[Rfam]
The family of this 278-nucleotide sequence from Pseudoatta argentina is "RNase MRP".
The family's consensus secondary structure is taken from published work.
It is annotated as a ribozyme.
Gene Ontology terms of the family: ribonuclease MRP complex, ribonuclease MRP activity and rRNA processing.
Lineage of the source: Eukaryota > Ecdysozoa > Insecta > Neoptera > Pseudoatta.

RNA sequence: AAGUUCCCUCGGGAAACACCACGGAGCCACUAUCGGAGUCUACAAUGACUUUAUCGCUCUGAGGAAAGUCCCUGGACUCGUGGCAGAAAGUGCCGUAGCUUUUGGCUAUCAGCCUCCGUCGUCUUCGCAAAUUUCAGGAGAGGAAGCUUCGGCCGAUCCUUCGUGAUGGACGUGAGAGUGUUCGUCAAAGUAAAGUAAUGUGUGUUGAAAUGUUUUCUGCUCUUCUGAAAGGAAACAGCAACGUUUAAACCGAACAGGGCUUACCACACGAGGAAACU
Numbered sequence: 001a002a003g004u005u006c007c008c009u010c011g012g013g014a015a016a017c018a019c020c021a022c023g024g025a026g027c028c029a030c031u032a033u034c035g036g037a038g039u040c041u042a043c044a045a046u047g048a049c050u051u052u053a054u055c056g057c058u059c060u061g062a063g064g065a066a067a068g069u070c071c072c073u074g075g076a077c078u079c080g081u082g083g084c085a086g087a088a089a090g091u092g093c094c095g096u097a098g099c100u101u102u103u104g105g106c107u108a109u110c111a112g113c114c115u116c117c118g119u120c121g122u123c124u125u126c127g128c129a130a131a132u133u134u135c136a137g138g139a140g141a142g143g144a145a146g147c148u149u150c151g152g153c154c155g156a157u158c159c160u161u162c163g164u165g166a167u168g169g170a171c172g173u174g175a176g177a178g179u180g181u182u183c184g185u186c187a188a189a190g191u192a193a194a195g196u197a198a199u200g201u202g203u204g205u206u207g208a209a210a211u212g213u214u215u216u217c218u219g220c221u222c223u224u225c226u227g228a229a230a231g232g233a234a235a236c237a238g239c240a241a242c243g244u245u246u247a248a249a250c251c252g253a254a255c256a257g258g259g260c261u262u263a264c265c266a267c268a269c270g271a272g273g274a275a276a277c278u
Stems, first nucleotide, its partner, number of pairs: 002278004007273005014205001016203004022061006036051005066262003070259004082094004096108004117172004125166004136160004146153002208246006
Dot-bracket structure: .((((.(((((..[.[[[[..((((((........(((((......)))))....))))))....(((.((((........((((.....)))).((((.....))))........((((....((((.......((((......((....))...))))..))))..))))...........................]]]].]..((((((...........................)))))).........)))))))......))))).))))